RNA sequence: UCCCUGCUUUCCAUCAGCGGGGGUUACUGAAGAGGCACACCUUCAUUGCCGGAAGUGCGGCAGGGAUAUUCCCUCCAAUCCAUGGCAGACAAAGCCGAACCUAUACCGCUUUCGCGGCGUUGGUUCAUCAUCUGCGCAUCGAGCGCUGCUAGGGAUCC
Numbered sequence: 001u002c003c004c005u006g007c008u009u010u011c012c013a014u015c016a017g018c019g020g021g022g023g024u025u026a027c028u029g030a031a032g033a034g035g036c037a038c039a040c041c042u043u044c045a046u047u048g049c050c051g052g053a054a055g056u057g058c059g060g061c062a063g064g065g066a067u068a069u070u071c072c073c074u075c076c077a078a079u080c081c082a083u084g085g086c087a088g089a090c091a092a093a094g095c096c097g098a099a100c101c102u103a104u105a106c107c108g109c110u111u112u113c114g115c116g117g118c119g120u121u122g123g124u125u126c127a128u129c130a131u132c133u134g135c136g137c138a139u140c141g142a143g144c145g146c147u148g149c150u151a152g153g154g155a156u157c158c
Stems, first nucleotide, its partner, number of pairs: 001023008034050004057137003084096002107119004
The record is a 158-nucleotide RNA sequence from Rhizobium sp. BK376, which matches "speF leader" in Rfam. About the family: This family is a putative regulatory RNA structure that is found upstream of the speF gene encoding ornithine decarboxylase in Agrobacterium tumefaciens and other alpha-proteobacteria. The source organism's lineage runs through Bacteria, Pseudomonadati, Pseudomonadota, Rhizobiaceae and Rhizobium. A search with the family's covariance model found it, with a score of 105 bits. On this family, see Corbino et al., Genome Biol 2005: "Evidence for a second class of S-adenosylmethionine riboswitches and other regulatory RNA motifs in alpha-proteobacteria". Its family is annotated with regulation of gene expression in the Gene Ontology.